[Rfam]
RNA: Small nucleolar RNA Z102/R77
Organism: Arachis hypogaea
RNA sequence: GGAUGAAAUGAUGUUUAGUUGUUUUCCCUAUUGGUUUGAUUGCCUCAAUGAUGGCAACUAUGUAUUAGCUCUAUCUGAUCAUUC
Numbered sequence: 001g002g003a004u005g006a007a008a009u010g011a012u013g014u015u016u017a018g019u020u021g022u023u024u025u026c027c028c029u030a031u032u033g034g035u036u037u038g039a040u041u042g043c044c045u046c047a048a049u050g051a052u053g054g055c056a057a058c059u060a061u062g063u064a065u066u067a068g069c070u071c072u073a074u075c076u077g078a079u080c081a082u083u084c
Base pairs, nucleotide, nucleotide: 002083003082004081005080038058041056042055043054044053